The record is an 86-nucleotide sequence from Olea europaea, which matches "Small nucleolar RNA R44/J54/Z268 family" in Rfam. Its family is annotated with nucleolus and RNA processing in the Gene Ontology. A search with the family's covariance model found it, with a score of 80 bits. By type it is a C/D-box small nucleolar RNA.
[Rfam]
RNA sequence: AAUGCAAGUGACGAUAAAACAGACAGGGACAUCAGAAUUCUAUGAAGAGUAUGAUGAUUUGUCGAUGGGAAUCUCUCUGAUGCAUU
Numbered sequence: 001a002a003u004g005c006a007a008g009u010g011a012c013g014a015u016a017a018a019a020c021a022g023a024c025a026g027g028g029a030c031a032u033c034a035g036a037a038u039u040c041u042a043u044g045a046a047g048a049g050u051a052u053g054a055u056g057a058u059u060u061g062u063c064g065a066u067g068g069g070a071a072u073c074u075c076u077c078u079g080a081u082g083c084a085u086u
Base pairs, nucleotide, nucleotide: 002085003084004083005082006081